Rfam assigns this 111-nucleotide RNA from Ammoniphilus oxalaticus to the family "SAM riboswitch aptamer (S box leader)".
Lineage of the source: Bacteria > Bacillota > Bacilli > Caryophanales > Ammoniphilus.
The base pairs follow the family's consensus structure, which is taken from published work.
A search with the family's covariance model found it, with a score of 85 bits.
[Rfam]
RNA sequence: GACUUAUCUAGAGAGGUGGAGGGACUGGCCCUUUGAAGCCCAGCAACCGUUAGGAUACUAGCAGGUGCUAAUUCCAGCAGAACGACGGUCGAAGGUUCUGAAAGAUAAGAA
Numbered sequence: 001g002a003c004u005u006a007u008c009u010a011g012a013g014a015g016g017u018g019g020a021g022g023g024a025c026u027g028g029c030c031c032u033u034u035g036a037a038g039c040c041c042a043g044c045a046a047c048c049g050u051u052a053g054g055a056u057a058c059u060a061g062c063a064g065g066u067g068c069u070a071a072u073u074c075c076a077g078c079a080g081a082a083c084g085a086c087g088g089u090c091g092a093a094g095g096u097u098c099u100g101a102a103a104g105a106u107a108a109g110a111a
Base pairs, nucleotide, nucleotide: 003109004108005107006106007105008104013041015040016039017038021031022030023029025077026076027075028074042069043068044067045066047065048064049062050061051060052059073103078100079099080098081097082096083095